THF (Tetrahydrofolate) riboswitch aptamer: a 111-nucleotide RNA sequence from bacterium 1XD21-70. Rfam describes the family as follows. Tetrahydrofolate (THF) riboswitch was first reported for Ames et al. as an RNA motif in 5' untranslated (5'-UTR)regions of folate transport and biosynthesis genes in Firmicutes genomes. For this family Rfam cites "A eubacterial riboswitch class that senses the coenzyme tetrahydrofolate" (Ames et al., Chem Biol, 2010). Rfam 15.1 lists 747 matches to the family in 747 species. A search with the family's covariance model found it, with a score of 87 bits.
[Rfam]
RNA sequence: AGCAGAGUAGGUCUGUGCGCGUUAAGUGCCGGGUGGACGGGGAGUUGCCAUCCGGACGAAAAGGGCAGAAGGAUAUAUGCCCUUGCGGUGCAUGGCCCGCAUCCCGCUGCA
Numbered sequence: 001a002g003c004a005g006a007g008u009a010g011g012u013c014u015g016u017g018c019g020c021g022u023u024a025a026g027u028g029c030c031g032g033g034u035g036g037a038c039g040g041g042g043a044g045u046u047g048c049c050a051u052c053c054g055g056a057c058g059a060a061a062a063g064g065g066c067a068g069a070a071g072g073a074u075a076u077a078u079g080c081c082c083u084u085g086c087g088g089u090g091c092a093u094g095g096c097c098c099g100c101a102u103c104c105c106g107c108u109g110c111a
Stems, first nucleotide, its partner, number of pairs: 002110004010098002013095007020087003026057002029055008040104003044100001061084007